RNA sequence: CGGCUUUCCCUAGCGUUAUGAAGCAGAAUUCACCAAGCGUUGCAUUGUUCACCCAAUAAUAGGGAACGUGAGCUGGGUUUAAACCAUUGUGAGACUGGUUGGAU
Numbered sequence: 001c002g003g004c005u006u007u008c009c010c011u012a013g014c015g016u017u018a019u020g021a022a023g024c025a026g027a028a029u030u031c032a033c034c035a036a037g038c039g040u041u042g043c044a045u046u047g048u049u050c051a052c053c054c055a056a057u058a059a060u061a062g063g064g065a066a067c068g069u070g071a072g073c074u075g076g077g078u079u080u081a082a083a084c085c086a087u088u089g090u091g092a093g094a095c096u097g098g099u100u101g102g103a104u
Stems, first nucleotide, its partner, number of pairs: 001076001002074004006068001007065005014039002019032004041055002045051001082100004087094002
Shown here is a 104-nucleotide part of an RNA from Fasciola hepatica, a member of the family "Eukaryotic large subunit ribosomal RNA". The organism belongs to Fasciola, within Eukaryota.